The record is a 316-nucleotide RNA sequence from Buteo japonicus, which matches "Small Cajal body-specific RNA 7" in Rfam.
The base pairs follow the family's consensus structure.
It is annotated as a small Cajal body RNA.
The family has 18 seed sequences and 570 matches in Rfam 15.1.
RNA sequence: UGGAAGUGAUGAAAUAGAGAUAAUUGGGUGUCUGUUUGAGUGGAGUGUGUGUGAUAAAUAGAAUUUAAACCAAAUUAAACUGGGGGUGGGGUGUGGGGAAUGUGUGUCUGUGCAUGUAUAGAAAAGGCUUAAAGCGGGGGCACUGAUAAUGCAGUGCUGAUUCCGGAGUGCAUCUGAGGCAUGUUGUUGAGUUCUGGGGUGCCACUUUACAACAUUGCCAAUGAUUAAAGCCCAAAACAAGCCCACCAAAAUAAGCCUAGGCAUCUUAAAUCUCUAACAGGUUCAUAAAUGAAAGUGAUCCUGUGAUCUGAUCCAA
Numbered sequence: 001u002g003g004a005a006g007u008g009a010u011g012a013a014a015u016a017g018a019g020a021u022a023a024u025u026g027g028g029u030g031u032c033u034g035u036u037u038g039a040g041u042g043g044a045g046u047g048u049g050u051g052u053g054a055u056a057a058a059u060a061g062a063a064u065u066u067a068a069a070c071c072a073a074a075u076u077a078a079a080c081u082g083g084g085g086g087u088g089g090g091g092u093g094u095g096g097g098g099a100a101u102g103u104g105u106g107u108c109u110g111u112g113c114a115u116g117u118a119u120a121g122a123a124a125a126g127g128c129u130u131a132a133a134g135c136g137g138g139g140g141c142a143c144u145g146a147u148a149a150u151g152c153a154g155u156g157c158u159g160a161u162u163c164c165g166g167a168g169u170g171c172a173u174c175u176g177a178g179g180c181a182u183g184u185u186g187u188u189g190a191g192u193u194c195u196g197g198g199g200u201g202c203c204a205c206u207u208u209a210c211a212a213c214a215u216u217g218c219c220a221a222u223g224a225u226u227a228a229a230g231c232c233c234a235a236a237a238c239a240a241g242c243c244c245a246c247c248a249a250a251a252u253a254a255g256c257c258u259a260g261g262c263a264u265c266u267u268a269a270a271u272c273u274c275u276a277a278c279a280g281g282u283u284c285a286u287a288a289a290u291g292a293a294a295g296u297g298a299u300c301c302u303g304u305g306a307u308c309u310g311a312u313c314c315a316a
Stems, first nucleotide, its partner, number of pairs: 001315004182214006189207001191202002194199001